Small Cajal body specific RNA 1: a 163-nucleotide RNA sequence from Regulus satrapa.
Rfam 15.1 lists 715 matches to the family in 617 species.
Rfam's curators write: scaRNAs are a specific class of small nuclear RNAs which localise to the Cajal bodies and guide the modification of RNA polymerase II transcribed spliceosomal RNAs U1, U2, U4, U5 and U12. ACA35 belong to the H/ACA box class of guide RNAs as it has the predicted hairpin-hinge-hairpin-tail structure, conserved H/ACA-box motifs and is found associated with GAR1. It is predicted to guide pseudouridylation of the U2 spliceosomal snRNA at residue U89.
A reference for the family is Darzacq et al. (2002), "Cajal body-specific small nuclear RNAs: a novel class of 2'-O-methylation and pseudouridylation guide RNAs", EMBO J.
The source organism's lineage runs through Eukaryota, Opisthokonta, Amniota, Aves and Regulus.
Gene Ontology terms of the family: Cajal body, RNA processing and nucleolus.
[Rfam]
RNA sequence: GAGCACUUGAUACUAACCGAGCCAUCGGUGUCCCAGCCUGGACAGAGGCCUGGGGGCACCCUGUGAUUGCUGGGUCUGAAAAGUGCUACAGCAAAACAAGCCAUGCAGUGUUUAAGCUCAGUGUGUGAAGGAAGACACUGGGUUAUAGCUCAGAGGCACAGAA
Numbered sequence: 001g002a003g004c005a006c007u008u009g010a011u012a013c014u015a016a017c018c019g020a021g022c023c024a025u026c027g028g029u030g031u032c033c034c035a036g037c038c039u040g041g042a043c044a045g046a047g048g049c050c051u052g053g054g055g056g057c058a059c060c061c062u063g064u065g066a067u068u069g070c071u072g073g074g075u076c077u078g079a080a081a082a083g084u085g086c087u088a089c090a091g092c093a094a095a096a097c098a099a100g101c102c103a104u105g106c107a108g109u110g111u112u113u114a115a116g117c118u119c120a121g122u123g124u125g126u127g128a129a130g131g132a133a134g135a136c137a138c139u140g141g142g143u144u145a146u147a148g149c150u151c152a153g154a155g156g157c158a159c160a161g162a163a
Stems, first nucleotide, its partner, number of pairs: 003086006016075003020071003024067003027060006033053001035051002038048002100157003121136002124133001126131001138153006